RNA: Glycine riboswitch aptamer
RNA sequence: GCCGGGCGCGCGGGAGAGUGUGACGGCCAUCGCUGGCCCGAUCCGCCGAAGGAGCAACCGCCCCGGAAACUCUCAGGCAACCGGACCGCGCGACCGGG
Numbered sequence: 001g002c003c004g005g006g007c008g009c010g011c012g013g014g015a016g017a018g019u020g021u022g023a024c025g026g027c028c029a030u031c032g033c034u035g036g037c038c039c040g041a042u043c044c045g046c047c048g049a050a051g052g053a054g055c056a057a058c059c060g061c062c063c064c065g066g067a068a069a070c071u072c073u074c075a076g077g078c079a080a081c082c083g084g085a086c087c088g089c090g091c092g093a094c095c096g097g098g
Stems, first nucleotide, its partner, number of pairs: 007092007020043001045078003048074002052072003058066002